[Rfam]
The family of this 375-nucleotide RNA sequence from Conyzicola nivalis is "transfer-messenger RNA". On this family, see Williams and Bartel, RNA 1996: "Phylogenetic analysis of tmRNA secondary structure". Rfam's curators write: Bacterial tmRNA, also known as 10Sa RNA or SsrA, is named for its dual tRNA and mRNA-like properties. Its role is to liberate the mRNA from a stalled ribosome. To accomplish this part of the tmRNA is used as a reading frame that ends in a translation stop signal. The broken mRNA is replaced in the ribosome by the tmRNA and translation of the tmRNA leads to addition of a proteolysis tag to the incomplete protein enabling recognition by a protease. Recently a number of permuted tmRNA genes have been found encoded in two parts. tmRNAs have been identified in eubacteria and some chloroplasts but are absent from archaeal and eukaryote nuclear genomes. By type it is a non-coding RNA gene.

RNA sequence: GGGGAUGAUCGGUUUCGACAUUGCCUGCAAAACUGUGAGAAGCGGGUCGAGGAUGCAGGCUUAUCUCGUAAACGAUGUCUGCAAACUAUAAGUGCCGAUUCCAAGCGCACUGACUUCGCCCUCGCUGCCUAAGCGAGCGCACUAAAGAAGUCCGUCAGUCCGAGGAUGCUCUCUACUCGGGUCCUGGCGUAAUUUAGAGAGAUUGCUGCGUGGUUACGCCUUAGGGCUACGCGGGACUUGAACUAUGGCUGGGCUCGUUGACCUAGAUGCUCGCAGCAAAGGUCAGAGCCAAGUAGAACGUCUUUGCGAGCUACACCCGUAGAAGGCACAGAAUUACAGCAGUGGACCGGGGUUCAAUUCCCCGCAUCUCCACCA
Numbered sequence: 001g002g003g004g005a006u007g008a009u010c011g012g013u014u015u016c017g018a019c020a021u022u023g024c025c026u027g028c029a030a031a032a033c034u035g036u037g038a039g040a041a042g043c044g045g046g047u048c049g050a051g052g053a054u055g056c057a058g059g060c061u062u063a064u065c066u067c068g069u070a071a072a073c074g075a076u077g078u079c080u081g082c083a084a085a086c087u088a089u090a091a092g093u094g095c096c097g098a099u100u101c102c103a104a105g106c107g108c109a110c111u112g113a114c115u116u117c118g119c120c121c122u123c124g125c126u127g128c129c130u131a132a133g134c135g136a137g138c139g140c141a142c143u144a145a146a147g148a149a150g151u152c153c154g155u156c157a158g159u160c161c162g163a164g165g166a167u168g169c170u171c172u173c174u175a176c177u178c179g180g181g182u183c184c185u186g187g188c189g190u191a192a193u194u195u196a197g198a199g200a201g202a203u204u205g206c207u208g209c210g211u212g213g214u215u216a217c218g219c220c221u222u223a224g225g226g227c228u229a230c231g232c233g234g235g236a237c238u239u240g241a242a243c244u245a246u247g248g249c250u251g252g253g254c255u256c257g258u259u260g261a262c263c264u265a266g267a268u269g270c271u272c273g274c275a276g277c278a279a280a281g282g283u284c285a286g287a288g289c290c291a292a293g294u295a296g297a298a299c300g301u302c303u304u305u306g307c308g309a310g311c312u313a314c315a316c317c318c319g320u321a322g323a324a325g326g327c328a329c330a331g332a333a334u335u336a337c338a339g340c341a342g343u344g345g346a347c348c349g350g351g352g353u354u355c356a357a358u359u360c361c362c363c364g365c366a367u368c369u370c371c372a373c374c375a
Base pairs, nucleotide, nucleotide: 001371002370003369004368005367006366007365019344020343021342022341023340025339026338027337033331034330035329036328037327043319044318045317046316047315048068049067050066051065052064055082056081057080058079059078060077118140119139121137122136123135124134125133153189154188155187156186157185158184160180161179162178163177164176169201170200171199172198173197174196206234207233208232209231210230211229212228213227214226218250220248221247252290253289254288255287256286259285260284261283264279266277269311270310271309272308275304276303348364349363350362351361352360